[Rfam]
RNA sequence: ACGAGAUGACGAUAUAUAUUCAUAGUCUGUCAAUCCCCUGAUUCCAGUUUACUGGGUUUGAUGACACAAUGAAUCCCGACAGGUUCUGAUCGU
Numbered sequence: 001a002c003g004a005g006a007u008g009a010c011g012a013u014a015u016a017u018a019u020u021c022a023u024a025g026u027c028u029g030u031c032a033a034u035c036c037c038c039u040g041a042u043u044c045c046a047g048u049u050u051a052c053u054g055g056g057u058u059u060g061a062u063g064a065c066a067c068a069a070u071g072a073a074u075c076c077c078g079a080c081a082g083g084u085u086c087u088g089a090u091c092g093u
Base pairs, nucleotide, nucleotide: 001093002092003091004090
Rfam assigns this 93-nucleotide sequence from Chenopodium quinoa to the family "Small nucleolar RNA snoR14". The literature on the family includes a 2001 paper in RNA by Brown et al., "Multiple snoRNA gene clusters from Arabidopsis". The organism belongs to Chenopodium, within Eukaryota. Rfam classes the family as a C/D-box small nucleolar RNA. Its family is annotated with RNA processing and nucleolus in the Gene Ontology. Its Rfam clan is "SNORD110 clan". Rfam 15.1 lists 668 matches to the family in 221 species.